[Rfam]
A member of the RNA family "SAM (S-adenosyl methionine) riboswitch aptamer" from Nesterenkonia sedimenti, 118 nucleotides long.
RNA sequence: GGUCAAGAGUGCCACUGCAAAACCCCGGUUUGGUGGCCGGCAACCCUCCAGUUCGCGGUGGGGUGCCCCGGGUGACGACCUGGCCGGACGGAAAACCCCGUCCCGGCAAGCGCGGACC
Numbered sequence: 001g002g003u004c005a006a007g008a009g010u011g012c013c014a015c016u017g018c019a020a021a022a023c024c025c026c027g028g029u030u031u032g033g034u035g036g037c038c039g040g041c042a043a044c045c046c047u048c049c050a051g052u053u054c055g056c057g058g059u060g061g062g063g064u065g066c067c068c069c070g071g072g073u074g075a076c077g078a079c080c081u082g083g084c085c086g087g088a089c090g091g092a093a094a095a096c097c098c099c100g101u102c103c104c105g106g107c108a109a110g111c112g113c114g115g116a117c118c
Base pairs, nucleotide, nucleotide: 001080002079003078004077009038011037012036013035014034015033016032021030022029039067040066041065044063045062046061048058049057083107084106085105086104087102088101089100090099091098
The match comes from Rfam's covariance-model search (104 bits).
Lineage of the source: Bacteria > Actinomycetota > Actinomycetes > Micrococcales > Nesterenkonia.
On this family, see Weinberg et al., RNA 2008: "The aptamer core of SAM-IV riboswitches mimics the ligand-binding site of SAM-I riboswitches".
The family's consensus secondary structure is taken from published work.